[Rfam]
Streptomyces-metH RNA: a 121-nucleotide sequence from Kitasatospora indigofera.
The family's consensus secondary structure is taken from published work.
It is annotated as a small RNA.
The organism belongs to Kitasatospora, within Bacteria.
Nucleotides: 121
Base pairs, nucleotide, nucleotide: 060084061083062082065078066077067076068075087101088100090099091098092097
Number, partner (000 for none) and nucleotide at each position: 001000a002000c003000g004000c005000u006000c007000a008000g009000g010000a011000u012000a013000c014000g015000a016000a017000a018000c019000g020000g021000u022000u023000c024000g025000c026000c027000g028000g029000u030000c031000c032000g033000a034000a035000g036000g037000c038000c039000c040000g041000g042000a043000c044000g045000g046000a047000u048000a049000c050000c051000c052000u053000g054000g055000c056000g057000a058000g059000g060084u061083g062082c063000c064000u065078c066077c067076c068075c069000g070000a071000c072000c073000g074000c075068g076067g077066g078065g079000a080000g081000c082062g083061c084060a085000a086000a087101g088100c089000c090099g091098a092097c093000a094000g095000c096000c097092g098091u099090c100088g101087c102000a103000c104000c105000c106000a107000g108000g109000g110000a111000g112000a113000a114000g115000c116000c117000c118000c119000a120000u121000g